Rfam assigns this 92-nucleotide RNA to the family "Hepatitis C virus stem-loop SL8670". The sequence is in the family's curated seed alignment.

RNA sequence: AGAGUCUGGGCGUCGGGGAGGAUGCUGCGGCUCUGCGAGCUUUCACGGAAGCUAUGACCAGAUACUCCGCCCCACCUGGCGAUCCCCCACAA
Numbered sequence: 001a002g003a004g005u006c007u008g009g010g011c012g013u014c015g016g017g018g019a020g021g022a023u024g025c026u027g028c029g030g031c032u033c034u035g036c037g038a039g040c041u042u043u044c045a046c047g048g049a050a051g052c053u054a055u056g057a058c059c060a061g062a063u064a065c066u067c068c069g070c071c072c073c074a075c076c077u078g079g080c081g082a083u084c085c086c087c088c089a090c091a092a
Stems, first nucleotide, its partner, number of pairs: 008085003014079001017076002020073002027070002029067002032062004038053006
For this family Rfam cites "Functionally conserved architecture of hepatitis C virus RNA genomes" (Mauger et al., Proc Natl Acad Sci U S A, 2015). Pairs were carried over by alignment from the consensus structure, which was predicted with RNAfold.